[Rfam]
RNA: T-box leader
RNA sequence: CCAAAUGUAGUGAUUAGAAAUAGUAGAAGUGACAUGACCUAUCAGAGAGCCGUUGGUCGGUGCGAAACGGCAGUGCCAGUCACCUCGAACUCGUCUAUGAACAGCGGCCCGACAAUGUAGGGUUCGACGGAAUUCCACCGUUACAGGGAUAGAUGGUGAUGGCCAUCGAAGGAGAUCAUUUCCUAGGAAAUGAAUUAGAGUGGUACCGCGAGUUCAACCUCGUCUCUAUA
Numbered sequence: 001c002c003a004a005a006u007g008u009a010g011u012g013a014u015u016a017g018a019a020a021u022a023g024u025a026g027a028a029g030u031g032a033c034a035u036g037a038c039c040u041a042u043c044a045g046a047g048a049g050c051c052g053u054u055g056g057u058c059g060g061u062g063c064g065a066a067a068c069g070g071c072a073g074u075g076c077c078a079g080u081c082a083c084c085u086c087g088a089a090c091u092c093g094u095c096u097a098u099g100a101a102c103a104g105c106g107g108c109c110c111g112a113c114a115a116u117g118u119a120g121g122g123u124u125c126g127a128c129g130g131a132a133u134u135c136c137a138c139c140g141u142u143a144c145a146g147g148g149a150u151a152g153a154u155g156g157u158g159a160u161g162g163c164c165a166u167c168g169a170a171g172g173a174g175a176u177c178a179u180u181u182c183c184u185a186g187g188a189a190a191u192g193a194a195u196u197a198g199a200g201u202g203g204u205a206c207c208g209c210g211a212g213u214u215c216a217a218c219c220u221c222g223u224c225u226c227u228a229u230a
Base pairs, nucleotide, nucleotide: 007102008101015097016096017095018094026086027085029083030082031081039073040072049071050070051069052068053067054066105126106125107123108122109121110120128140129139130138177192178191179190180189181188182187197227198226199225200224208223209222210221211220212219